This 226-nucleotide RNA sequence from Paenibacillus nuruki belongs to the Rfam family "T-box leader".
[Rfam]
RNA sequence: AUGAUUGUGAUGACGGGAACAGUACGUAAACCUGCGGUGUGUAUAGAGAGUGAAUCCCAGCGGCUGAAAGGAUUCGCCACCAGCUCUUACCGAACCUACCCCCGAACUUUUAGCGCCUAUAACGCUGAACGGAUACCUACCGUUAUCUUGGAUAUUUAAGCCGGACAGAACGAUAGAUUCUGUCAAUAAAGGUGGUACCGCGGGAGCUCAGACUUUCGUCCUUUGC
Numbered sequence: 001a002u003g004a005u006u007g008u009g010a011u012g013a014c015g016g017g018a019a020c021a022g023u024a025c026g027u028a029a030a031c032c033u034g035c036g037g038u039g040u041g042u043a044u045a046g047a048g049a050g051u052g053a054a055u056c057c058c059a060g061c062g063g064c065u066g067a068a069a070g071g072a073u074u075c076g077c078c079a080c081c082a083g084c085u086c087u088u089a090c091c092g093a094a095c096c097u098a099c100c101c102c103c104g105a106a107c108u109u110u111u112a113g114c115g116c117c118u119a120u121a122a123c124g125c126u127g128a129a130c131g132g133a134u135a136c137c138u139a140c141c142g143u144u145a146u147c148u149u150g151g152a153u154a155u156u157u158a159a160g161c162c163g164g165a166c167a168g169a170a171c172g173a174u175a176g177a178u179u180c181u182g183u184c185a186a187u188a189a190a191g192g193u194g195g196u197a198c199c200g201c202g203g204g205a206g207c208u209c210a211g212a213c214u215u216u217c218g219u220c221c222u223u224u225g226c
Base pairs, nucleotide, nucleotide: 007107008106015102016101017100026090027089028088029087039080040079041078050077051076052075053074054073055072056071057070110128111127112126113125114124115123130142131141132140164184165183166182167181168180169179170178189223190222191221192220200219201218202217203216204215205214206213
Uncharged tRNA acts as the effector for transcription antitermination of genes in the T-box leader family. T-boxes are found upstream of many aminoacyl-tRNA synthetase genes and some amino acid biosynthetic genes usually in Gram-positive bacteria. The anticodon of a specific tRNA base pairs to a specifier sequence within the T-box motif, and the NCCA acceptor tail of the tRNA base pairs to a conserved bulge in the T-box antiterminator hairpin. Lineage of the source: Bacteria > Bacillati > Bacillota > Paenibacillaceae > Paenibacillus. The family's RNA type in Rfam is cis-regulatory leader.